[Rfam]
RNA sequence: CCGUCCGGCAUCCUAGGCAGGGUGCCGCGGGACCUCCCUCGUGUCUGUAGUGGUGGGAUUACGUGGCCAAGUUUUCCUGGUGGCCUGGCU
Numbered sequence: 001c002c003g004u005c006c007g008g009c010a011u012c013c014u015a016g017g018c019a020g021g022g023u024g025c026c027g028c029g030g031g032a033c034c035u036c037c038c039u040c041g042u043g044u045c046u047g048u049a050g051u052g053g054u055g056g057g058a059u060u061a062c063g064u065g066g067c068c069a070a071g072u073u074u075u076c077c078u079g080g081u082g083g084c085c086u087g088g089c090u
Stems, first nucleotide, its partner, number of pairs: 005088004011083002013080005019073002023069001024067006031060002033053002036050001038047001
RNA: mir-663 microRNA precursor family
Organism: Pongo abelii